[Rfam]
RNA sequence: GGCCUAAAGGGGCCGUAGCCGGGCCGGUGUGGCUCCGGUGAAAUCCUCGGGCUCAACCCGAGGGCGCGCCGGAGCUACUACCGGCCUAGGGACCGGGAGGGGCCGACCGUACUCCCGGGGGAGCGGUGAAAUGCUGUAAUCCCGGGAGGACGACCCGUGGCGAAAGCGGUCGGCCAGAACGGGUCCGACGGUGAGGGCCGAAGGCCGGGGGCUAGAACGGGAUUAGAGACCCCGGUAUUCCCGGCUGUCAACGCUGCGGGCUACCUGCUGGGCGGGCUACGAGCCCGCCCAGUGGGGUAGGGAAGCCGUUAAGCCCGCCGCCUGGGGAGUACGGCCGCAAGGCUGAAACUUAAAGGAAU
Numbered sequence: 001g002g003c004c005u006a007a008a009g010g011g012g013c014c015g016u017a018g019c020c021g022g023g024c025c026g027g028u029g030u031g032g033c034u035c036c037g038g039u040g041a042a043a044u045c046c047u048c049g050g051g052c053u054c055a056a057c058c059c060g061a062g063g064g065c066g067c068g069c070c071g072g073a074g075c076u077a078c079u080a081c082c083g084g085c086c087u088a089g090g091g092a093c094c095g096g097g098a099g100g101g102g103c104c105g106a107c108c109g110u111a112c113u114c115c116c117g118g119g120g121g122a123g124c125g126g127u128g129a130a131a132u133g134c135u136g137u138a139a140u141c142c143c144g145g146g147a148g149g150a151c152g153a154c155c156c157g158u159g160g161c162g163a164a165a166g167c168g169g170u171c172g173g174c175c176a177g178a179a180c181g182g183g184u185c186c187g188a189c190g191g192u193g194a195g196g197g198c199c200g201a202a203g204g205c206c207g208g209g210g211g212c213u214a215g216a217a218c219g220g221g222a223u224u225a226g227a228g229a230c231c232c233c234g235g236u237a238u239u240c241c242c243g244g245c246u247g248u249c250a251a252c253g254c255u256g257c258g259g260g261c262u263a264c265c266u267g268c269u270g271g272g273c274g275g276g277c278u279a280c281g282a283g284c285c286c287g288c289c290c291a292g293u294g295g296g297g298u299a300g301g302g303a304a305g306c307c308g309u310u311a312a313g314c315c316c317g318c319c320g321c322c323u324g325g326g327g328a329g330u331a332c333g334g335c336c337g338c339a340a341g342g343c344u345g346a347a348a349c350u351u352a353a354a355g356g357a358a359u
Stems, first nucleotide, its partner, number of pairs: 001322003009319001011199004016193001018192003022086007031078001032075009045063007090186003093182003101175007108152002112148008123134003160167002204245006214238001218234004256318006264296014300307002324351003333344004
Dot-bracket structure: (((.....(.((((.(.(((.(((((((..((((((((((....(((((((.....)))))))...)))))))))..).)))))))...((((((.....(((((((((..((((((((...(((......)))......))))))))..)).......((....)).)))))))....))).)))...))))..))))....((((((....(...((((.........))))...).))))))..........((((((..((((((((((((((.....))))))))))))))...((....)).....)))))))))).(((......((((....))))....)))........
This 359-nucleotide part of an RNA from Nanoarchaeum equitans belongs to the Rfam family "Archaeal small subunit ribosomal RNA".
The source organism's lineage runs through Archaea, Nanobdellota, Candidatus Nanoarchaeia, Nanoarchaeales and Nanoarchaeum.
Rfam 15.1 lists 709 matches to the family in 491 species.
Gene Ontology terms of the family: structural constituent of ribosome and ribosome.
Its Rfam clan is "SSU clan".